Shown here is an 88-nucleotide RNA from Equus caballus, a member of the family "mir-9014 microRNA precursor family". Rfam 15.1 lists 581 matches to the family in 2 species. Taxonomically the source falls in Equus (Eukaryota, Eumetazoa, Tetrapoda, Amniota). It scores 76 bits against the family's covariance model. The base pairs follow the family's consensus structure, which was predicted with RNAalifold.
RNA sequence: GGAGCCAUACGAUGGUAUCCCAAUCCACCCUUAGGAAAAGAAACCUGUCACAGGAGUCUUGGAGACUGGCGACCGUCCUAAUGAUUUA
Number, nucleotide and partner (000 for none) at each position: 001g000002g087003a086004g085005c000006c083007a082008u081009a000010c000011g078012a000013u000014g000015g074016u000017a000018u071019c000020c069021c068022a067023a000024u065025c064026c000027a000028c000029c062030c061031u000032u000033a000034g000035g000036a000037a000038a060039a059040g058041a057042a000043a000044c054045c053046u052047g051048u000049c000050a000051c047052a046053g045054g044055a000056g000057u041058c040059u039060u038061g030062g029063a000064g025065a024066c000067u022068g021069g020070c000071g018072a000073c000074c015075g000076u000077c000078c011079u000080a000081a008082u007083g006084a000085u004086u003087u002088a000